[Rfam]
SAM riboswitch aptamer (S box leader): a 102-nucleotide RNA sequence from Clostridium fallax. Taxonomically the source falls in Clostridium (Bacteria, Bacillota, Clostridia, Eubacteriales).
Nucleotides: 102
Base pairs, nucleotide, nucleotide: 001102002101003100004099005098006097007096008095013042015041016040017039021032022031023030028076029075043070044069045068046067048066049065050062051061052060053059074094079091080090081089083087
Number, partner (000 for none) and nucleotide at each position: 001102c002101u003100c004099u005098u006097a007096u008095c009000c010000a011000g012000a013042g014000a015041g016040g017039u018000g019000g020000a021032g022031g023030g024000a025000u026000a027000c028076g029075g030023c031022c032021c033000g034000g035000u036000g037000a038000a039017g040016c041015c042013c043070g044069g045068c046067a047000a048066c049065c050062u051061g052060u053059g054000u055000a056000a057000a058000a059053c060052a061051c062050a063000a064000a065049g066048g067046u068045g069044c070043c071000a072000a073000u074094u075029c076028c077000a078000g079091c080090a081089a082000u083087u084000u085000a086000u087083a088000u089081u090080u091079g092000c093000a094074a095008g096007a097006u098005a099004a100003g101002a102001g
About this RNA:
Gene Ontology term of the family: regulation of gene expression.